[Rfam]
RNA sequence: GAGUUUUUGAAAAUCAUUUGAAUCGCUACUUGAUUCAAAUGAUUUUCAAAAA
Dot-bracket structure: ......(((((((((((((((((((.....)))))))))))))))))))...
RNA: Plastid-ccsA-ndhD-1 3UTR RNA